[Rfam]
RNA sequence: GCCGCCUUAGCUCAGUCGGUAGAGCAAUUCACUCGUAAUGAAUAGGUCAGGAGUUCGAUUCUCCUAGGCGGCU
Numbered sequence: 001g002c003c004g005c006c007u008u009a010g011c012u013c014a015g016u017c018g019g020u021a022g023a024g025c026a027a028u029u030c031a032c033u034c035g036u037a038a039u040g041a042a043u044a045g046g047u048c049a050g051g052a053g054u055u056c057g058a059u060u061c062u063c064c065u066a067g068g069c070g071g072c073u
Stems, first nucleotide, its partner, number of pairs: 001072007010025004027043005049065005
The record is a 73-nucleotide RNA from Gordonia crocea, which matches "tRNA" in Rfam. By type it is a transfer RNA. From the family's description: Transfer RNA (tRNA) molecules are approximately 80 nucleotides in length. Taxonomically the source falls in Gordonia (Bacteria, Bacillati, Actinomycetes, Gordoniaceae).